Rfam assigns this 87-nucleotide RNA from Gossypium klotzschianum to the family "MIR7486 microRNA precursor family". Gene Ontology terms of the family: RISC complex and miRNA-mediated post-transcriptional gene silencing. The organism belongs to Gossypium, within Eukaryota. The base pairs follow the family's consensus structure, which was predicted with RNAalifold.
RNA sequence: CACAUCAGCACGCUAUGCUGACGUGGCAACAAAGCGUGUCCUUGAAAGCGCGAUUUGUAUCCACAUUAUCAAAGCGCGCUGACGUGG
Numbered sequence: 001c002a003c004a005u006c007a008g009c010a011c012g013c014u015a016u017g018c019u020g021a022c023g024u025g026g027c028a029a030c031a032a033a034g035c036g037u038g039u040c041c042u043u044g045a046a047a048g049c050g051c052g053a054u055u056u057g058u059a060u061c062c063a064c065a066u067u068a069u070c071a072a073a074g075c076g077c078g079c080u081g082a083c084g085u086g087g
Base pairs, nucleotide, nucleotide: 001086002085003084005082006081007080008079009078011076012075013074014073016071017070019068020067021066023064024063025062026061029058030057031056032055033054035052036051037050038049